RNA sequence: GAUUGUCGAAGGAUUUGACCUGAAUUCACAAUC
Numbered sequence: 001g002a003u004u005g006u007c008g009a010a011g012g013a014u015u016u017g018a019c020c021u022g023a024a025u026u027c028a029c030a031a032u033c
Base pairs, nucleotide, nucleotide: 001033002032003031004030005029006028008027010021011020012019
RNA: S4-Flavobacteria ribosomal protein leader
Organism: Flavobacterium noncentrifugens